[Rfam]
RNA: MIR1878 microRNA precursor family
RNA sequence: ACUUUUGCAAACUUAGUCUUGGCACUAUAAAUUUAAAAAUGUGCAUGUGAAAAUAUGUUCAUUAUAAAUUUGUAGUGUUCGGAUUGAGUUUAUAAUAGUCG
Numbered sequence: 001a002c003u004u005u006u007g008c009a010a011a012c013u014u015a016g017u018c019u020u021g022g023c024a025c026u027a028u029a030a031a032u033u034u035a036a037a038a039a040u041g042u043g044c045a046u047g048u049g050a051a052a053a054u055a056u057g058u059u060c061a062u063u064a065u066a067a068a069u070u071u072g073u074a075g076u077g078u079u080c081g082g083a084u085u086g087a088g089u090u091u092a093u094a095a096u097a098g099u100c101g
Stems, first nucleotide, its partner, number of pairs: 001099003009091011021079011040061002044057005